The record is a 100-nucleotide RNA from Genlisea aurea, which matches "Small nucleolar RNA snoR27" in Rfam. Rfam 15.1 lists 649 matches to the family in 212 species. The base pairs follow the family's consensus structure, which was predicted with WAR. The family's RNA type in Rfam is C/D-box small nucleolar RNA.
RNA sequence: AUCAGAUCGGUGAUGUGUUGAAUAAAUUACUGCGUUAUCUUUCUGAAUAUUCGGAGUCGAUGAAUUUGAGGAUACAUGUUUAAUCAUCCUGAGAUCUGUU
Numbered sequence: 001a002u003c004a005g006a007u008c009g010g011u012g013a014u015g016u017g018u019u020g021a022a023u024a025a026a027u028u029a030c031u032g033c034g035u036u037a038u039c040u041u042u043c044u045g046a047a048u049a050u051u052c053g054g055a056g057u058c059g060a061u062g063a064a065u066u067u068g069a070g071g072a073u074a075c076a077u078g079u080u081u082a083a084u085c086a087u088c089c090u091g092a093g094a095u096c097u098g099u100u
Stems, first nucleotide, its partner, number of pairs: 001100001003098005